RNA: Bacterial RNase P class A
Organism: Mediterraneibacter sp. gm002
RNA sequence: UAAGUAGGACAGACAAUCGCGGCUGCGGGAAUCGAAAGAUUGCAGACGAGGAAAGUCCGGGCUUCAUAGGGCAGGAUGCCGGAUAACGUCCGGUAGAGGUGACUCUAAGGAAAGUGCAACAGAAAUAAACCGCAUAUGUAUUUACAUAUGUAAGGGUGGAAAGGCAGUGUAAGAGACUACCGCCUCGCUGGUAACAGAGAGGGCACAUGUAAACCCCAUCCGAAGCAAGACCGGAUAAAAGCAAUGUGGCUGCCCGUCACGCUUUAGGUAGGUCGCUCGAGCCUGUUGGCGACAACAGGCCUAGAUAGAUGAUUGUUCAACGACAUAACCCGGCUCAUCGUCUUGCUUAACAC
Numbered sequence: 001u002a003a004g005u006a007g008g009a010c011a012g013a014c015a016a017u018c019g020c021g022g023c024u025g026c027g028g029g030a031a032u033c034g035a036a037a038g039a040u041u042g043c044a045g046a047c048g049a050g051g052a053a054a055g056u057c058c059g060g061g062c063u064u065c066a067u068a069g070g071g072c073a074g075g076a077u078g079c080c081g082g083a084u085a086a087c088g089u090c091c092g093g094u095a096g097a098g099g100u101g102a103c104u105c106u107a108a109g110g111a112a113a114g115u116g117c118a119a120c121a122g123a124a125a126u127a128a129a130c131c132g133c134a135u136a137u138g139u140a141u142u143u144a145c146a147u148a149u150g151u152a153a154g155g156g157u158g159g160a161a162a163g164g165c166a167g168u169g170u171a172a173g174a175g176a177c178u179a180c181c182g183c184c185u186c187g188c189u190g191g192u193a194a195c196a197g198a199g200a201g202g203g204c205a206c207a208u209g210u211a212a213a214c215c216c217c218a219u220c221c222g223a224a225g226c227a228a229g230a231c232c233g234g235a236u237a238a239a240a241g242c243a244a245u246g247u248g249g250c251u252g253c254c255c256g257u258c259a260c261g262c263u264u265u266a267g268g269u270a271g272g273u274c275g276c277u278c279g280a281g282c283c284u285g286u287u288g289g290c291g292a293c294a295a296c297a298g299g300c301c302u303a304g305a306u307a308g309a310u311g312a313u314u315g316u317u318c319a320a321c322g323a324c325a326u327a328a329c330c331c332g333g334c335u336c337a338u339c340g341u342c343u344u345g346c347u348u349a350a351c352a353c
Stems, first nucleotide, its partner, number of pairs: 001349010011338001012317007020048002023045006054335002057333005062225004069255004074221005079093005094108001095106004109216002114214002116210003130155002132151008163181002166178003182204001183202004188197003229274004239264004246260005281300008